Description:
Rfam assigns this 109-nucleotide RNA sequence from Desulfuromonas sp. DDH964 to the family "SAM riboswitch aptamer (S box leader)".

RNA sequence: UCUUUAUCAAGAGUGGUGGAGGGACAGGCCCUGUGAAACCACAGCAACCGGUCCGCGCCAGCGGGCGCCAGGUGCUAAUUCCUGCCCGGGCAACCGGGCGAGAUGAGGA
Numbered sequence: 001u002c003u004u005u006a007u008c009a010a011g012a013g014u015g016g017u018g019g020a021g022g023g024a025c026a027g028g029c030c031c032u033g034u035g036a037a038a039c040c041a042c043a044g045c046a047a048c049c050g051g052u053c054c055g056c057g058c059c060a061g062c063g064g065g066c067g068c069c070a071g072g073u074g075c076u077a078a079u080u081c082c083u084g085c086c087c088g089g090g091c092a093a094c095c096g097g098g099c100g101a102g103a104u105g106a107g108g109a
Stems, first nucleotide, its partner, number of pairs: 001109008013042005021031003025084004043076004048072002050069003080101001085098005
Its family is annotated with regulation of gene expression in the Gene Ontology.